[Rfam]
RNA: mir-9242 microRNA precursor family
RNA sequence: GGCCUCCUUCUGCAGGGUGAUCGAUCCCGGGGCUCCAUGGUCGAUGGCUCUGCAGAAGGAGGCC
Numbered sequence: 001g002g003c004c005u006c007c008u009u010c011u012g013c014a015g016g017g018u019g020a021u022c023g024a025u026c027c028c029g030g031g032g033c034u035c036c037a038u039g040g041u042c043g044a045u046g047g048c049u050c051u052g053c054a055g056a057a058g059g060a061g062g063c064c
Stems, first nucleotide, its partner, number of pairs: 001064018020045007029036002